Small nucleolar RNA R12: a 79-nucleotide RNA sequence from Eragrostis curvula. The family has 9 seed sequences and 992 matches in Rfam 15.1. snoR12 is a C/D box small nucleolar RNA, which acts as a methylation guide for 25S ribosomal RNA in plants. snoR12 has been alternatively named snoZ44 in Arabidopsis and snoZ131 in rice. The source organism's lineage runs through Eukaryota, Spermatophyta, Mesangiospermae, Poales and Eragrostis. On this family, see Chen et al., Nucleic Acids Res 2003: "The high diversity of snoRNAs in plants: identification and comparative study of 120 snoRNA genes from Oryza sativa". It is annotated as a C/D-box small nucleolar RNA.

[Rfam]
RNA sequence: UUCUGGGUGACGAAGAAAAUCAAUCGGAUUCCCACUGAUUGUUCAAUAUGAUUUUAUCAACCAGCUACUUCUGACAGAA
Numbered sequence: 001u002u003c004u005g006g007g008u009g010a011c012g013a014a015g016a017a018a019a020u021c022a023a024u025c026g027g028a029u030u031c032c033c034a035c036u037g038a039u040u041g042u043u044c045a046a047u048a049u050g051a052u053u054u055u056a057u058c059a060a061c062c063a064g065c066u067a068c069u070u071c072u073g074a075c076a077g078a079a
Base pairs, nucleotide, nucleotide: 001079002078003077004076005075